[Rfam]
RNA sequence: CCCCUCUUCCCUUUUCCAUCAAAUCUGAACCCUGGUCUUGGUGGUCAUAAAAGGAGGCACAGUGGUACUGAAGCUGUGCUUAUAGGAUCUGCUGCAUAGCAUGUGGGCUACUUUCAAACAAGG
Numbered sequence: 001c002c003c004c005u006c007u008u009c010c011c012u013u014u015u016c017c018a019u020c021a022a023a024u025c026u027g028a029a030c031c032c033u034g035g036u037c038u039u040g041g042u043g044g045u046c047a048u049a050a051a052a053g054g055a056g057g058c059a060c061a062g063u064g065g066u067a068c069u070g071a072a073g074c075u076g077u078g079c080u081u082a083u084a085g086g087a088u089c090u091g092c093u094g095c096a097u098a099g100c101a102u103g104u105g106g107g108c109u110a111c112u113u114u115c116a117a118a119c120a121a122g123g
Base pairs, nucleotide, nucleotide: 001056003054004053016044017043018042019041020040023036024035025034075110076109078108079107080106081105

Small nucleolar RNA SNORA61: a 123-nucleotide sequence from Cervus hanglu.
The base pairs follow the family's consensus structure, which was predicted with PFOLD.
Lineage of the source: Eukaryota > Metazoa > Bilateria > Artiodactyla > Cervus hanglu.
Rfam describes the family as follows. ACA61 is a member of the H/ACA class of snoRNA that guide the sites of modification of uridines to pseudouridines.